[Rfam]
RNA: Guanidine-I riboswitch aptamer
RNA sequence: GUGAGGCGCACCUAGGGUUCCGCCGUGUCCCACGGGUCUGGUCCGAGAGGUGCAGGCGGCCCCGUCGCAUCCACCGGGGCCGCUCCACGGCGGGACAAAAGCCCGGGAGGU
Numbered sequence: 001g002u003g004a005g006g007c008g009c010a011c012c013u014a015g016g017g018u019u020c021c022g023c024c025g026u027g028u029c030c031c032a033c034g035g036g037u038c039u040g041g042u043c044c045g046a047g048a049g050g051u052g053c054a055g056g057c058g059g060c061c062c063c064g065u066c067g068c069a070u071c072c073a074c075c076g077g078g079g080c081c082g083c084u085c086c087a088c089g090g091c092g093g094g095a096c097a098a099a100a101g102c103c104c105g106g107g108a109g110g111u
Stems, first nucleotide, its partner, number of pairs: 008053005015044002020041002022038001023035005055084010086106001088109001092104003